The record is a 54-nucleotide sequence from Coregonus sp. 'balchen', which matches "UnaL2 LINE 3' element" in Rfam.
Pairs were carried over by alignment from the consensus structure, which is taken from published work.
Its family is annotated with transposition, RNA-mediated in the Gene Ontology.
Rfam classes the family as a cis-regulatory element.
The family has 30 seed sequences and 493,311 matches in Rfam 15.1.
From the family's description: The eel long interspersed element (LINE) UnaL2 and its partner short interspersed element (SINE) share a conserved 3' tail containing a stem-loop that is critical for their retrotransposition.
[Rfam]
RNA sequence: ACUUACUACAUUUGUAAGACGCUCUGGAUAAGAGCGUCUGCUAAAUGACUAAAA
Numbered sequence: 001a002c003u004u005a006c007u008a009c010a011u012u013u014g015u016a017a018g019a020c021g022c023u024c025u026g027g028a029u030a031a032g033a034g035c036g037u038c039u040g041c042u043a044a045a046u047g048a049c050u051a052a053a054a
Stems, first nucleotide, its partner, number of pairs: 013043001014041003020036006